About this RNA: Shown here is an 83-nucleotide RNA from Oxyruncus cristatus, a member of the family "Small nucleolar RNA SNORD103/SNORD85". Its family is annotated with RNA processing and nucleolus in the Gene Ontology. Pairs were carried over by alignment from the consensus structure. It scores 53 bits against the family's covariance model.

RNA sequence: UCUGGCAAUGACGACACUCUUGCCCUCUCUGAGCAGCUGUGGCUGAUGAGAGCAGUUGUAGCGCUCUGUGGGGCUGAGCCAGA
Dot-bracket structure: ((((((.......................................................................))))))